[Rfam]
RNA sequence: CGCUGGCUAAGACAUCACAGACUUACCGAAUUAAGGAGUUCGUGAGUGAGAACUGUAGGCGCCGCGGCCUGCCUCUUGGAUCUGCCCUUCGUUUUGUCCGCUGCGCCUCCUGACCGCUGGCCCUGUCUCUCUCAGGUCGGUAAUCUCGGUGCGUUCCCGUGCUUCGGCCUGUGGCUGGAUUGCUUGCGACGUCCUUCGUGCCUGCUGACUGACUGGGCCGACGGCUCCGGCAAGAUGAAGCUCUCCCUGGUGGCUGCGGUGCUGCUG
Numbered sequence: 001c002g003c004u005g006g007c008u009a010a011g012a013c014a015u016c017a018c019a020g021a022c023u024u025a026c027c028g029a030a031u032u033a034a035g036g037a038g039u040u041c042g043u044g045a046g047u048g049a050g051a052a053c054u055g056u057a058g059g060c061g062c063c064g065c066g067g068c069c070u071g072c073c074u075c076u077u078g079g080a081u082c083u084g085c086c087c088u089u090c091g092u093u094u095u096g097u098c099c100g101c102u103g104c105g106c107c108u109c110c111u112g113a114c115c116g117c118u119g120g121c122c123c124u125g126u127c128u129c130u131c132u133c134a135g136g137u138c139g140g141u142a143a144u145c146u147c148g149g150u151g152c153g154u155u156c157c158c159g160u161g162c163u164u165c166g167g168c169c170u171g172u173g174g175c176u177g178g179a180u181u182g183c184u185u186g187c188g189a190c191g192u193c194c195u196u197c198g199u200g201c202c203u204g205c206u207g208a209c210u211g212a213c214u215g216g217g218c219c220g221a222c223g224g225c226u227c228c229g230g231c232a233a234g235a236u237g238a239a240g241c242u243c244u245c246c247c248u249g250g251u252g253g254c255u256g257c258g259g260u261g262c263u264g265c266u267g
Base pairs, nucleotide, nucleotide: 004256005255006254007253008252009251016161017160018159020157034118035117038114059106060105061104062103064101065100066099067098165177166176167175168174169173
About this RNA:
The family of this 267-nucleotide RNA from Rousettus aegyptiacus is "bip internal ribosome entry site (IRES)". The literature on the family includes a 2002 paper in Biochem Biophys Res Commun by Kim and Jang, "Continuous heat shock enhances translational initiation directed by internal ribosomal entry site". About the family: This family represents the bip internal ribosome entry site (IRES). BiP protein expression has been found to be significantly enhanced by the heat shock response due to IRES-dependent translation. It is thought that this translational mechanism is essential for the survival of cells under stress. The match comes from Rfam's covariance-model search (170 bits). Gene Ontology term of the family: ribosome binding.